[Rfam]
RNA sequence: AUACCUUCUCGGCCUUUUGGCUAAGAUCAAGUGUAGUAUCUGUUCUUAUCAGUGUGAAAACUGAUACUGUCCCUACUAGGGACAUGUGGUUUCACAUUAAUUUUUCACAGGGGUCGGAUUUACUAGUGGCUUGCCCUAGUCCCGACGCGGUUGCCCUUGGCAUGCACGCUACUAAGGAGCGGCUACCCCUG
Number, nucleotide and partner (000 for none) at each position: 001a000002u000003a000004c000005c000006u000007u026008c025009u024010c000011g022012g021013c020014c019015u000016u000017u000018u000019g014020g013021c012022u011023a000024a009025g008026a007027u000028c000029a000030a000031g000032u000033g000034u000035a000036g000037u000038a000039u000040c000041u000042g000043u000044u000045c000046u000047u066048a065049u064050c063051a062052g061053u000054g000055u000056g000057a000058a000059a000060a000061c052062u051063g050064a049065u048066a047067c000068u084069g083070u082071c081072c080073c079074u078075a000076c000077u000078a074079g073080g072081g071082a070083c069084a068085u000086g000087u000088g000089g000090u000091u000092u000093c000094a000095c000096a000097u000098u000099a000100a000101u000102u000103u000104u000105u000106c000107a000108c000109a000110g000111g000112g000113g146114u145115c144116g143117g142118a000119u000120u139121u000122a000123c000124u000125a000126g137127u000128g135129g134130c000131u000132u000133g000134c129135c128136c000137u126138a000139g120140u000141c000142c117143c116144g115145a114146c113147g000148c000149g184150g183151u182152u181153g180154c179155c000156c176157u175158u174159g173160g172161c000162a000163u000164g000165c000166a000167c000168g000169c000170u000171a000172c160173u159174a158175a157176g156177g000178a000179g154180c153181g152182g151183c150184u149185a000186c000187c000188c000189c000190u000191g000

A member of the RNA family "U2 spliceosomal RNA" from Tetrahymena thermophila, 191 nucleotides long. U2 is a small nuclear RNA (snRNA) component of the spliceosome (involved in pre-mRNA splicing). Complementary binding between U2 snRNA (in an area lying towards the 5' end but 3' to hairpin I) and the branchpoint sequence (BPS) of the intron results the bulging out of an unpaired adenosine, on the BPS, which initiates a nucleophilic attack at the intronic 5' splice site, thus starting the first of two transesterification reactions that mediate splicing. Rfam classes the family as a spliceosomal small nuclear RNA. Lineage of the source: Eukaryota > Intramacronucleata > Oligohymenophorea > Hymenostomatida > Tetrahymena.